Overview: FGF-1 internal ribosome entry site (IRES): a 173-nucleotide RNA from Ursus maritimus. NCBI's taxonomy places the organism under Eukaryota, Opisthokonta, Eumetazoa, Teleostomi, Ursus. The base pairs follow the family's consensus structure, which is taken from published work. Rfam's curators write: This family represents the FGF-1 internal ribosome entry site (IRES). On this family, see Martineau et al., Mol Cell Biol 2004: "Internal Ribosome Entry Site Structural Motifs Conserved among Mammalian Fibroblast Growth Factor 1 Alternatively Spliced mRNAs". Rfam links the family to the GO term ribosome binding.

RNA sequence: AACUCCAGGGGAAUGAGGGCAUCGCCUCCUUUUGGUGAAGGACACUCCCUUCUGAUGGAGAAUGGGAACUCCCUUCCUCCCACAGUGGCCUGCCUGCAGCGCUCCUGCUAGCUCGGUGUGGACACUGUAGGCUGCUGCAGCUGCGUCACCCCGGAAAGAAAGUGCCUCAGAGC
Numbered sequence: 001a002a003c004u005c006c007a008g009g010g011g012a013a014u015g016a017g018g019g020c021a022u023c024g025c026c027u028c029c030u031u032u033u034g035g036u037g038a039a040g041g042a043c044a045c046u047c048c049c050u051u052c053u054g055a056u057g058g059a060g061a062a063u064g065g066g067a068a069c070u071c072c073c074u075u076c077c078u079c080c081c082a083c084a085g086u087g088g089c090c091u092g093c094c095u096g097c098a099g100c101g102c103u104c105c106u107g108c109u110a111g112c113u114c115g116g117u118g119u120g121g122a123c124a125c126u127g128u129a130g131g132c133u134g135c136u137g138c139a140g141c142u143g144c145g146u147c148a149c150c151c152c153g154g155a156a157a158g159a160a161a162g163u164g165c166c167u168c169a170g171a172g173c
Stems, first nucleotide, its partner, number of pairs: 003172003008168004014159001016050004025041003029037001051155003058079001060076003064073003085147001086143004094137001096135005105120001